The family of this 140-nucleotide sequence from Bacillus smithii is "Ribosomal protein L20 leader". A search with the family's covariance model found it, with a score of 70 bits. The organism belongs to Bacillus smithii, within Bacteria. By type it is a cis-regulatory leader.

RNA sequence: AAGAACAAGCAGAAGCAAGCCCGCUUCUCACCUGAACUGACGCCUAUAAGCUGUUGGCAGGUUAAACGGAGUCAAUCGAAAUCAUAUGGCUUGAUCCAUUUUUAUGCGGGUUUUCUGUAUACCCGCAUUUUUUUAUGCUU
Numbered sequence: 001a002a003g004a005a006c007a008a009g010c011a012g013a014a015g016c017a018a019g020c021c022c023g024c025u026u027c028u029c030a031c032c033u034g035a036a037c038u039g040a041c042g043c044c045u046a047u048a049a050g051c052u053g054u055u056g057g058c059a060g061g062u063u064a065a066a067c068g069g070a071g072u073c074a075a076u077c078g079a080a081a082u083c084a085u086a087u088g089g090c091u092u093g094a095u096c097c098a099u100u101u102u103u104a105u106g107c108g109g110g111u112u113u114u115c116u117g118u119a120u121a122c123c124c125g126c127a128u129u130u131u132u133u134u135a136u137g138c139u140u
Base pairs, nucleotide, nucleotide: 011028012027013026014025015024016023030062031061032060039055040054041053042051043050105127106126107125108124109123110122111121113119